[Rfam]
RNA sequence: AAUUAGCAACGUGUCUGCUACACACCCCACAGAUUGCAAAACUUCAUAGCUAAACCUCUCACGGGGGGAGUUUUGGUUGGUAGGCGUCAGCAGGCUCCAUCUGCUGGUGAAUCCAACACUACCCGCUCUUCUUUCGCGGGUUUCCUUUGAAGAUUUCUCCUUCUCGUAC
Dot-bracket structure: ..............................................(.............(((((.(((......(((((....((((((((((.....))))))))))...)))))...(((((...........)))))................)))..)))))).
Annotation: Shown here is a 169-nucleotide RNA from Callosobruchus maculatus, a member of the family "R2 RNA element". Gene Ontology term of the family: regulation of reverse transcription. The organism belongs to Callosobruchus, within Eukaryota. It scores 44 bits against the family's covariance model. The family's consensus secondary structure is taken from published work. Rfam describes the family as follows. This family represents the 3' UTR region of the R2 retrotransposable element. This family is known to interact with the R2-encoded reverse transcriptase in a reaction known as target primed reverse transcription (TPRT). A reference for the family is Ruschak et al. (2004), "Secondary structure models of the 3' untranslated regions of diverse R2 RNAs", RNA.